[Rfam]
RNA: Mammalian CPEB3 ribozyme
RNA sequence: CCAGGACUUGAUGGCCAAGUAAGGAGCGUUCAAAACGCGGCCAAACAGGUUGAGCGUGUCAACCUGCAAAUCCUUCC
Number, nucleotide and partner (000 for none) at each position: 001c000002c000003a000004g000005g000006a000007c000008u000009u000010g000011a000012u000013g042014g041015c040016c039017a000018a000019g077020u000021a075022a074023g073024g072025a071026g038027c037028g036029u000030u000031c000032a000033a000034a000035a000036c028037g027038c026039g016040g015041c014042c013043a000044a000045a000046c066047a065048g064049g063050u062051u061052g060053a000054g000055c000056g000057u000058g000059u000060c052061a051062a050063c049064c048065u047066g046067c000068a000069a000070a000071u025072c024073c023074u022075u021076c000077c019